[Rfam]
RNA sequence: CGGCGUGUUGUUUUAACCUAAAAGCCUUGAACGCUGUCGUUUCGCCGUCGACAACAAUCACACGCGCACACUUCCACCAUUAUCAUCUAUCCACCACACAGGUUCGUCGGAUGCGAAACGGUGGUGUUCAGGGCUUUUUUAAGGUUGCUGGA
Numbered sequence: 001c002g003g004c005g006u007g008u009u010g011u012u013u014u015a016a017c018c019u020a021a022a023a024g025c026c027u028u029g030a031a032c033g034c035u036g037u038c039g040u041u042u043c044g045c046c047g048u049c050g051a052c053a054a055c056a057a058u059c060a061c062a063c064g065c066g067c068a069c070a071c072u073u074c075c076a077c078c079a080u081u082a083u084c085a086u087c088u089a090u091c092c093a094c095c096a097c098a099c100a101g102g103u104u105c106g107u108c109g110g111a112u113g114c115g116a117a118a119c120g121g122u123g124g125u126g127u128u129c130a131g132g133g134c135u136u137u138u139u140u141a142a143g144g145u146u147g148c149u150g151g152a
Stems, first nucleotide, its partner, number of pairs: 001150005016145003020138026048110005054103002064094001066092001
RNA: MIR4228 microRNA precursor family
Organism: Arabidopsis lyrata